[Rfam]
RNA: MIR403 microRNA precursor family
Organism: Jatropha curcas
RNA sequence: GCAGAUUACGGGUUUGUGCGUGAAUCUAACACGAUCCAAUAGAUAGAAAUUGGCGAAUUUUAUAUAUUAGAUUCACGCACAAACCUGCAAUAUGCCU
Numbered sequence: 001g002c003a004g005a006u007u008a009c010g011g012g013u014u015u016g017u018g019c020g021u022g023a024a025u026c027u028a029a030c031a032c033g034a035u036c037c038a039a040u041a042g043a044u045a046g047a048a049a050u051u052g053g054c055g056a057a058u059u060u061u062a063u064a065u066a067u068u069a070g071a072u073u074c075a076c077g078c079a080c081a082a083a084c085c086u087g088c089a090a091u092a093u094g095c096c097u
Stems, first nucleotide, its partner, number of pairs: 001095003005091003011085016028068002
Dot-bracket structure: (((.(((...((((((((((((((((.((.....................................)).))))))))))))))))...))).)))..